The family of this 99-nucleotide RNA from Trema orientale is "mir-166 microRNA precursor family".
The literature on the family includes a 2002 paper in Genes Dev by Reinhart et al., "MicroRNAs in plants".
Gene Ontology terms of the family: RISC complex and miRNA-mediated post-transcriptional gene silencing.
The match comes from Rfam's covariance-model search (87 bits).
The family's consensus secondary structure was predicted with PFOLD.
This family represents the plant microRNA (miRNA) precursor mir-166.
RNA sequence: GUUGAGGGGAAUGCUGUCUGGUUCGAGACCAUUCCUUUGAAGCGUAGAAAAUUAUAACCUUAUUUGAAUGAUUUCGGACCAGGCUUCAUUCCCCCCAAC
Numbered sequence: 001g002u003u004g005a006g007g008g009g010a011a012u013g014c015u016g017u018c019u020g021g022u023u024c025g026a027g028a029c030c031a032u033u034c035c036u037u038u039g040a041a042g043c044g045u046a047g048a049a050a051a052u053u054a055u056a057a058c059c060u061u062a063u064u065u066g067a068a069u070g071a072u073u074u075c076g077g078a079c080c081a082g083g084c085u086u087c088a089u090u091c092c093c094c095c096c097a098a099c
Stems, first nucleotide, its partner, number of pairs: 001099004006094008016084006024076003